[Rfam]
A member of the RNA family "DUF3800-IX RNA", 63 nucleotides long.
The sequence is in the family's curated seed alignment.
Rfam's curators write: Actinobacteria, Firmicutes (1 example), Nitrospirae, Proteobacteria, Verrucomicrobia (1 example).
RNA sequence: GCUACCAUUCCGAACUGUCGCAAACCAAUGCGGCGUUCCGCAAGGAUAGGAGUGGUAGCUUUA
Numbered sequence: 001g002c003u004a005c006c007a008u009u010c011c012g013a014a015c016u017g018u019c020g021c022a023a024a025c026c027a028a029u030g031c032g033g034c035g036u037u038c039c040g041c042a043a044g045g046a047u048a049g050g051a052g053u054g055g056u057a058g059c060u061u062u063a
Stems, first nucleotide, its partner, number of pairs: 001059011016035007037046003